[Rfam]
RNA sequence: UGCGAUCAUAAUGAGGAUAACCAAGCUCCCUCUUCUGAUAUCUGUGAGGAAGUUGCUGGCAGAAUCGAACCAUUAACUUAAUAUUUCCAUUCCUGAAUGA
Numbered sequence: 001u002g003c004g005a006u007c008a009u010a011a012u013g014a015g016g017a018u019a020a021c022c023a024a025g026c027u028c029c030c031u032c033u034u035c036u037g038a039u040a041u042c043u044g045u046g047a048g049g050a051a052g053u054u055g056c057u058g059g060c061a062g063a064a065u066c067g068a069a070c071c072a073u074u075a076a077c078u079u080a081a082u083a084u085u086u087c088c089a090u091u092c093c094u095g096a097a098u099g100a
Stems, first nucleotide, its partner, number of pairs: 006100004
A member of the RNA family "Small nucleolar RNA R30/Z108" from Nicotiana sylvestris, 100 nucleotides long. Rfam's curators write: snoR30 is a C/D box small nucleolar RNA which acts as a methylation guide for 18S ribosomal RNA in plants. It is annotated as a C/D-box small nucleolar RNA. The match comes from Rfam's covariance-model search (61 bits). The base pairs follow the family's consensus structure, which was predicted with PFOLD. The family is grouped with related families in Rfam's "SNORD100 clan".